The record is a 93-nucleotide RNA sequence from Staphylococcus epidermidis, which matches "Fst antitoxin sRNA" in Rfam. Rfam classes the family as an antitoxin RNA. From the family's description: It is located on the opposite strand of SprA1 sRNA. On this family, see Fozo et al., Nucleic Acids Res 2010: "Abundance of type I toxin-antitoxin systems in bacteria: searches for new candidates and discovery of novel families". NCBI's taxonomy places the organism under Bacteria, Bacilli, Staphylococcaceae, Staphylococcus, Staphylococcus epidermidis. The base pairs follow the family's consensus structure, which was predicted with RNAalifold. Its family is annotated with mRNA binding in the Gene Ontology.
[Rfam]
RNA sequence: UGCAGUAGUGAGGGGAUUUUUUAGGUGUGGCUAUAGUCGCCUAUUUAUUGUUGCGAUUACGUAGCCAAUGCGUAAAUAACGCAACAAUACAAC
Dot-bracket structure: .......(((................(((((....))))).........((((((...(((.........)))......))))))..)))...